[Rfam]
RNA sequence: UGGACAUAUUAUUGUAUUCGGCUAUAUUCACGGCGUGAAAUAGGGGAUUACACUGUUUUAAAACUGAAAUUGAAUAAAUUAACAUAAUAGACUCCU
Numbered sequence: 001u002g003g004a005c006a007u008a009u010u011a012u013u014g015u016a017u018u019c020g021g022c023u024a025u026a027u028u029c030a031c032g033g034c035g036u037g038a039a040a041u042a043g044g045g046g047a048u049u050a051c052a053c054u055g056u057u058u059u060a061a062a063a064c065u066g067a068a069a070u071u072g073a074a075u076a077a078a079u080u081a082a083c084a085u086a087a088u089a090g091a092c093u094c095c096u
Stems, first nucleotide, its partner, number of pairs: 002095003009090007017082002020080002023077001026075005035064002037059007
This 96-nucleotide sequence from Nicotiana sylvestris belongs to the Rfam family "MIR6152 microRNA precursor family". Its family is annotated with RISC complex and miRNA-mediated post-transcriptional gene silencing in the Gene Ontology. Pairs were carried over by alignment from the consensus structure, which was predicted with RNAalifold. A search with the family's covariance model found it, with a score of 89 bits.